[Rfam]
RNA: tRNA
RNA sequence: AAGAGUAUAGUUUAAUGGUAAAACUGUAAGCUUCAACCUUAUAUUUCUUAGUUCAAAUCUAAGUACUCUUG
Numbered sequence: 001a002a003g004a005g006u007a008u009a010g011u012u013u014a015a016u017g018g019u020a021a022a023a024c025u026g027u028a029a030g031c032u033u034c035a036a037c038c039u040u041a042u043a044u045u046u047c048u049u050a051g052u053u054c055a056a057a058u059c060u061a062a063g064u065a066c067u068c069u070u071g
Stems, first nucleotide, its partner, number of pairs: 001070007010024004026042005047063005